[Rfam]
RNA: MIR2655 microRNA precursor family
Organism: Trifolium subterraneum
RNA sequence: CCCUUAUCUUUUAAAAGUUUCAAGUUGGUCCCUUAUCUUUAUUUUAGGUUUCAAGUUGGUCUCUUCCGUCAAUUUUUAAGUAUUUCCAUUAAAUUUGGACACGUGGCACACUUGGACAUAUGACACGUGUCCAAAUUUAACGGUAACAGUAAAAAAAUUGACGGAAGGGACCAACUUGAAACCUAAGAAAAAGAUAAGGGACUAACUUGAAAUUUUCAAAAGAUAAGGGA
Number, nucleotide and partner (000 for none) at each position: 001c000002c228003c227004u226005u225006a224007u223008c222009u000010u000011u000012u000013a000014a000015a000016a000017g000018u000019u000020u000021c000022a000023a207024g206025u205026u000027g203028g202029u201030c000031c199032c198033u197034u196035a195036u194037c193038u192039u191040u190041a000042u188043u187044u000045u185046a184047g183048g000049u000050u000051u000052c000053a000054a000055g000056u000057u000058g000059g000060u000061c000062u000063c000064u000065u000066c000067c000068g000069u000070c000071a000072a000073u000074u000075u000076u000077u000078a000079a000080g000081u000082a000083u000084u000085u000086c000087c000088a000089u000090u000091a000092a000093a000094u000095u000096u000097g000098g000099a000100c000101a000102c000103g000104u000105g000106g000107c000108a000109c000110a000111c000112u000113u000114g000115g000116a000117c000118a000119u000120a000121u000122g000123a000124c000125a000126c000127g000128u000129g000130u000131c000132c000133a000134a000135a000136u000137u000138u000139a000140a000141c000142g000143g000144u000145a000146a000147c000148a000149g000150u000151a000152a000153a000154a000155a000156a000157a000158u000159u000160g000161a000162c000163g000164g000165a000166a000167g000168g000169g000170a000171c000172c000173a000174a000175c000176u000177u000178g000179a000180a000181a000182c000183c047184u046185a045186a000187g043188a042189a000190a040191a039192a038193g037194a036195u035196a034197a033198g032199g031200g000201a029202c028203u027204a000205a025206c024207u023208u000209g000210a000211a000212a000213u000214u000215u000216u000217c000218a000219a000220a000221a000222g008223a007224u006225a005226a004227g003228g002229g000230a000